Rfam assigns this 106-nucleotide RNA from Roseicyclus mahoneyensis to the family "Guanidine-I riboswitch aptamer".
A search with the family's covariance model found it, with a score of 75 bits.
NCBI's taxonomy places the organism under Bacteria, Pseudomonadati, Pseudomonadota, Roseobacteraceae, Roseicyclus.
RNA sequence: GCGCAGAGCAUUUAGGGUUCCGCCCGGGUUCGGGGUCUGGUCCGAGAAAUGCGGCCGCGUCGGCAAAUUCCGGCACGGUACACGGCGGGCCAAAAUCCCGGGAGAG
Number, nucleotide and partner (000 for none) at each position: 001g000002c000003g000004c000005a000006g000007a000008g052009c051010a050011u049012u048013u000014a000015g043016g042017g000018u000019u000020c040021c039022g037023c034024c033025c032026g031027g000028g000029u000030u000031c026032g025033g024034g023035g000036u000037c022038u000039g021040g020041u000042c016043c015044g000045a000046g000047a000048a012049a011050u010051g009052c008053g000054g079055c078056c077057g076058c000059g074060u073061c072062g071063g070064c000065a000066a000067a000068u000069u000070c063071c062072g061073g060074c059075a000076c057077g056078g055079u054080a000081c101082a000083c104084g000085g000086c000087g099088g098089g097090c000091c000092a000093a000094a000095a000096u000097c089098c088099c087100g000101g081102g000103a000104g083105a000106g000